[Rfam]
RNA: Mammalian CPEB3 ribozyme
RNA sequence: AUAAAUAAAUUGAUGGCCAUAGCAGAAGCAUUCAUGUUGUGGGCCCUGUCAGAUUCCAAUGAAUCUGCUAAAUGUUGCU
Numbered sequence: 001a002u003a004a005a006u007a008a009a010u011u012g013a014u015g016g017c018c019a020u021a022g023c024a025g026a027a028g029c030a031u032u033c034a035u036g037u038u039g040u041g042g043g044c045c046c047u048g049u050c051a052g053a054u055u056c057c058a059a060u061g062a063a064u065c066u067g068c069u070a071a072a073u074g075u076u077g078c079u
Base pairs, nucleotide, nucleotide: 015044017042018041021079022078023077024076025075027073028040029039030038050067051066052065053064054063055062056061